[Rfam]
RNA sequence: ACCCACUCACCACCCGUACGCGGCAGGAGCGGGGGACCCACAGGUACGACCGCCUGUUCCGGUUCCCGGGACGGCUAGGGGUAAAGCCGCGCUCUUCCGGUGCGGCCGGGCAGCUCCAGCCCGCACCCGACAGCUCACCUCGCAGGCGCCGGAGAGGAAUU
Numbered sequence: 001a002c003c004c005a006c007u008c009a010c011c012a013c014c015c016g017u018a019c020g021c022g023g024c025a026g027g028a029g030c031g032g033g034g035g036a037c038c039c040a041c042a043g044g045u046a047c048g049a050c051c052g053c054c055u056g057u058u059c060c061g062g063u064u065c066c067c068g069g070g071a072c073g074g075c076u077a078g079g080g081g082u083a084a085a086g087c088c089g090c091g092c093u094c095u096u097c098c099g100g101u102g103c104g105g106c107c108g109g110g111c112a113g114c115u116c117c118a119g120c121c122c123g124c125a126c127c128c129g130a131c132a133g134c135u136c137a138c139c140u141c142g143c144a145g146g147c148g149c150c151g152g153a154g155a156g157g158a159a160u161u
Stems, first nucleotide, its partner, number of pairs: 002146002007028002029143006039078001079128003087105004108122004
This 161-nucleotide RNA sequence from Streptomyces sp. ISL-12 belongs to the Rfam family "c-di-AMP riboswitch aptamer (ydaO/yuaA leader)". The organism belongs to Streptomyces, within Bacteria. This family represents a conserved RNA structure found upstream of the ydaO and yuaA genes in Bacillus subtilis and related genes in other bacteria.